[Rfam]
Nucleotides: 089
Stems, first nucleotide, its partner, number of pairs: 002088002007083001009081006016074008026065001028063010
Number, partner (000 for none) and nucleotide at each position: 001000c002088c003087c004000g005000a006000u007083g008000u009081g010080c011079a012078u013077c014076u015000u016074a017073u018072g019071g020070c021069u022068u023067u024000c025000u026065a027000u028063u029062c030061c031060u032059a033058u034057g035056u036055g037054a038000g039000u040000u041000g042000u043000g044000c045000u046000c047000u048000u049000g050000a051000g052000g053000a054037u055036c056035a057034c058033g059032u060031a061030g062029g063028g064000u065026u066000c067023a068022a069021a070020g071019c072018c073017a074016u075000u076014g077013g078012a079011u080010g081009c082000u083007c084000u085000g086000g087003g088002g089000a